[Rfam]
RNA: FMN riboswitch aptamer (RFN element)
RNA sequence: UCAAUCCUUCGGGGCUGGGUGAAAAUCCCGACCGGCGGUGAUGGCGGAAAAGUUCCGCCUCAGUCCGUGACCCGCAUCAAUGCGGUGGACUCGGUGAAAUUCCGGGGCCGACAGUGAGAGUCUGGAUGGGAGAAGGAUGAA
Numbered sequence: 001u002c003a004a005u006c007c008u009u010c011g012g013g014g015c016u017g018g019g020u021g022a023a024a025a026u027c028c029c030g031a032c033c034g035g036c037g038g039u040g041a042u043g044g045c046g047g048a049a050a051a052g053u054u055c056c057g058c059c060u061c062a063g064u065c066c067g068u069g070a071c072c073c074g075c076a077u078c079a080a081u082g083c084g085g086u087g088g089a090c091u092c093g094g095u096g097a098a099a100u101u102c103c104g105g106g107g108c109c110g111a112c113a114g115u116g117a118g119a120g121u122c123u124g125g126a127u128g129g130g131a132g133a134a135g136g137a138u139g140a141a
Stems, first nucleotide, its partner, number of pairs: 004138007017029003031121002033110002035068004063108002072085002090106005112124003